[Rfam]
RNA: Group II catalytic intron D1-D4-6
RNA sequence: AAGGUACCCACCCCGCAAUUAGCCAUUCGGCGGGUAGUGAAGCGUGCAUCUGCUGGAGUAAUCCAUUUGGGUGAAGCCACGCGGAUCAAAUGUAAGGGCCGUAACAAAAGUGAACCGACAUGAGCCUCGUUACACCAUUAGCAGCGGCCAGCCUCUCGGAGUUGGUGAAGCCUGACACGGUCGGGGAAGCAAUGGUUAGCACCCGACUGGCUGCUCGGGGUCAGAGCG
Numbered sequence: 001a002a003g004g005u006a007c008c009c010a011c012c013c014c015g016c017a018a019u020u021a022g023c024c025a026u027u028c029g030g031c032g033g034g035u036a037g038u039g040a041a042g043c044g045u046g047c048a049u050c051u052g053c054u055g056g057a058g059u060a061a062u063c064c065a066u067u068u069g070g071g072u073g074a075a076g077c078c079a080c081g082c083g084g085a086u087c088a089a090a091u092g093u094a095a096g097g098g099c100c101g102u103a104a105c106a107a108a109a110g111u112g113a114a115c116c117g118a119c120a121u122g123a124g125c126c127u128c129g130u131u132a133c134a135c136c137a138u139u140a141g142c143a144g145c146g147g148c149c150a151g152c153c154u155c156u157c158g159g160a161g162u163u164g165g166u167g168a169a170g171c172c173u174g175a176c177a178c179g180g181u182c183g184g185g186g187a188a189g190c191a192a193u194g195g196u197u198a199g200c201a202c203c204c205g206a207c208u209g210g211c212u213g214c215u216c217g218g219g220g221u222c223a224g225a226g227c228g
Stems, first nucleotide, its partner, number of pairs: 012034005019025001020198004037086002042082003046077001047073005052067001054065004121224001122222001124221006140215006146172003151166003178209008